[Rfam]
RNA sequence: GUGAACCCUAACUCCUAGCCUUUACGCCUAAGUGGCUCCUCCGGGAACGAUAGGGUGUAUUGGCCGUGGCCCCUAAAGGCCGCCAGGGUGCAGGAUAGAAAUGUCCGCAUCUCCCGUAUUUGGAAAGGUGUUAACGGUGCCACAAC
Numbered sequence: 001g002u003g004a005a006c007c008c009u010a011a012c013u014c015c016u017a018g019c020c021u022u023u024a025c026g027c028c029u030a031a032g033u034g035g036c037u038c039c040u041c042c043g044g045g046a047a048c049g050a051u052a053g054g055g056u057g058u059a060u061u062g063g064c065c066g067u068g069g070c071c072c073c074u075a076a077a078g079g080c081c082g083c084c085a086g087g088g089u090g091c092a093g094g095a096u097a098g099a100a101a102u103g104u105c106c107g108c109a110u111c112u113c114c115c116g117u118a119u120u121u122g123g124a125a126a127g128g129u130g131u132u133a134a135c136g137g138u139g140c141c142a143c144a145a146c
Stems, first nucleotide, its partner, number of pairs: 003140001006137001010132003014128002018064003023059006032051002035048001066083005086112006093106005113123002